[Rfam]
RNA sequence: CGGCGUGCCGCACACCGUCAACCAUGCGGCUUCCGGCGCUCUGCGCCGGAACGGAAAGG
Numbered sequence: 001c002g003g004c005g006u007g008c009c010g011c012a013c014a015c016c017g018u019c020a021a022c023c024a025u026g027c028g029g030c031u032u033c034c035g036g037c038g039c040u041c042u043g044c045g046c047c048g049g050a051a052c053g054g055a056a057a058g059g
Stems, first nucleotide, its partner, number of pairs: 007030006032050006